[Rfam]
Shown here is a 171-nucleotide sequence from Burkholderia sp. SRS-W-2-2016, a member of the family "Manganese Mn2+ riboswitch aptamer (yybP-ykoY)". The pairing is the family consensus, mapped onto this sequence. Taxonomically the source falls in Burkholderia (Bacteria, Pseudomonadati, Betaproteobacteria, Burkholderiales).
RNA sequence: CCACCGGUCACUGGGGAGUAGCCUUCCUUCAUCGCAUGGAGGAGAGCGCGUCAACAUACUUGGCCUGCGGGUCAUGGCGCGUUCGACCGGGUCGGUUUGGCGAGACCAUUGACGUACUGCCUCGUUCUGGUCGGACGGGUGGCGGUGCGUCAUGGUUCGUCACUUACGUCC
Dot-bracket structure: .........................(((...........))).((((((((((.......(((((....)))))))))))))))......(...............................................................................)
Rfam links the family to the GO term manganese ion binding.